RNA sequence: UUCAUGGGGAUUGCGGUCUCCCCAUGAGGCUAUGGCCCAAGAAUCGCGUCCAUGAACCUGAAACAAGGAAGGACGCGUCAUG
Number, nucleotide and partner (000 for none) at each position: 001u000002u000003c000004a000005u024006g023007g022008g021009g020010a019011u000012u000013g000014c000015g000016g000017u000018c000019u010020c009021c008022c007023c006024a005025u000026g000027a000028g000029g000030c000031u000032a000033u000034g000035g000036c000037c000038c000039a000040a000041g000042a000043a000044u000045c000046g076047c075048g074049u073050c072051c071052a000053u000054g000055a000056a000057c000058c000059u000060g000061a000062a000063a000064c000065a000066a000067g000068g000069a000070a000071g051072g050073a049074c048075g047076c046077g000078u000079c000080a000081u000082g000

Annotation: This 82-nucleotide RNA from Borborobacter arsenicus belongs to the Rfam family "chrB-a RNA". It scores 76 bits against the family's covariance model. By type it is a cis-regulatory element.